RNA: SAM riboswitch aptamer (S box leader)
RNA sequence: AAGCUAUCAAGAGAAGCUAAGAGAACAGGCUCUAUGACGCUUCAGCAACCUGUCUUAGGAUAAGGUGCUCCAUCCUGCCCAAAGGAAAGAUAGGAG
Numbered sequence: 001a002a003g004c005u006a007u008c009a010a011g012a013g014a015a016g017c018u019a020a021g022a023g024a025a026c027a028g029g030c031u032c033u034a035u036g037a038c039g040c041u042u043c044a045g046c047a048a049c050c051u052g053u054c055u056u057a058g059g060a061u062a063a064g065g066u067g068c069u070c071c072a073u074c075c076u077g078c079c080c081a082a083a084g085g086a087a088a089g090a091u092a093g094g095a096g
Base pairs, nucleotide, nucleotide: 004093005092006091007090008089013043014042015041016040017039021032022031023030026077027076028075029074044069045068046067047066049065050064051062052061053060054059073088078085079084